[Rfam]
RNA sequence: CCGCCGAAGUUUCCCUCAGGAUAGCAGUGUCGAUCUUCAGUUUUAUGAGGUAAAGCGAAUGAUUAGGGACCCGGGGGCGCUAUUUAGCCUUCAUCCAUUCUCAAACUUUAAAUAUGUAAGAAGCCCUUGUUGCUUAGUUGAACGUGGGCAUUCGAAUGCACGACACUAGUGGGCCAUUUUUGGUAAGCAGAACUGGCGAUGUGGGAUGAACCAUACGCGGGGUUAAGGUGCCGGAGUGGACGCUCAUCGGACACCACAAAAGGCGUUAGUACAUCUUGACAGCAGGACGGUGGCCAUGGAAGUCGGAACCCGCUAAGGAGUGUGUAACAACUCACCUGCCGAAUGUACUAGCCCUGAAAAUGGAUGGCGCUCAAGCGUCCCACCUAUACCCCGCCCCCAGGGUAGAAACGAAGCCCUGGGGAGUAGGCGGCCGUGGGGGUGCGUGACGAAGCCCAGGGCGCGAGCCCGGGUGGAACCGCCCCUAGUGCAGAU
Number, nucleotide and partner (000 for none) at each position: 001c430002c429003g428004c427005c426006g000007a000008a000009g000010u023011u000012u021013c020014c019015c000016u000017c000018a000019g014020g013021a012022u000023a010024g000025c000026a167027g166028u165029g164030u163031c162032g161033a000034u000035c000036u000037u000038c000039a000040g000041u121042u120043u119044u118045a117046u116047g115048a000049g000050g000051u000052a000053a109054a107055g106056c000057g000058a000059a000060u103061g102062a101063u000064u000065a098066g000067g096068g095069a094070c000071c000072c000073g092074g091075g090076g089077g088078c000079g085080c000081u000082a000083u000084u000085u079086a000087g000088c077089c076090u075091u074092c073093a000094u069095c068096c067097a000098u065099u000100c000101u062102c061103a060104a000105a000106c055107u054108u000109u053110a000111a000112a000113u000114a000115u047116g046117u045118a044119a043120g042121a041122a000123g149124c148125c147126c146127u000128u144129g143130u142131u141132g000133c000134u000135u000136a000137g000138u000139u000140g000141a131142a130143c129144g128145u000146g126147g125148g124149c123150a000151u000152u000153c000154g000155a000156a000157u000158g000159c000160a000161c032162g031163a030164c029165a028166c027167u026168a000169g000170u000171g000172g000173g197174c196175c195176a194177u000178u192179u191180u190181u189182g188183g000184u000185a000186a000187g000188c182189a181190g180191a179192a178193c000194u176195g175196g174197c173198g000199a000200u000201g000202u213203g212204g211205g000206a000207u000208g000209a000210a000211c204212c203213a202214u000215a000216c000217g394218c393219g392220g391221g390222g000223u388224u000225a000226a000227g384228g383229u382230g000231c000232c000233g000234g000235a000236g381237u000238g380239g000240a000241c377242g376243c375244u000245c000246a000247u000248c000249g000250g000251a000252c000253a000254c000255c000256a000257c000258a000259a000260a000261a355262g354263g353264c000265g352266u351267u350268a349269g348270u347271a346272c345273a344274u343275c000276u000277u000278g000279a000280c000281a000282g339283c338284a337285g336286g335287a000288c312289g311290g310291u000292g000293g000294c306295c305296a000297u000298g000299g000300a000301a000302g000303u000304c000305g295306g294307a000308a000309c000310c290311c289312g288313c317314u000315a000316a000317g313318g333319a000320g000321u000322g331323u330324g000325u000326a000327a000328c000329a000330a323331c322332u000333c318334a000335c286336c285337u284338g283339c282340c000341g000342a000343a274344u273345g272346u271347a270348c269349u268350a267351g266352c265353c263354c262355u261356g000357a000358a000359a000360a000361u000362g000363g000364a000365u000366g000367g000368c000369g000370c000371u000372c000373a000374a000375g243376c242377g241378u000379c000380c238381c236382a229383c228384c227385u000386a000387u000388a223389c000390c221391c220392c219393g218394c217395c421396c420397c419398c418399a417400g416401g415402g414403u413404a000405g000406a000407a000408a000409c000410g000411a000412a000413g403414c402415c401416c400417u399418g398419g397420g396421g395422a000423g000424u000425a000426g005427g004428c003429g002430g001431c000432c487433g000434u484435g483436g482437g481438g480439g479440u478441g477442c000443g476444u475445g000446a000447c000448g000449a000450a000451g471452c470453c000454c000455a000456g000457g466458g465459c464460g000461c000462g000463a000464g459465c458466c457467c000468g000469g000470g452471u451472g000473g000474a000475a444476c443477c441478g440479c439480c438481c437482c436483u435484a434485g000486u000487g432488c000489a000490g000491a000492u000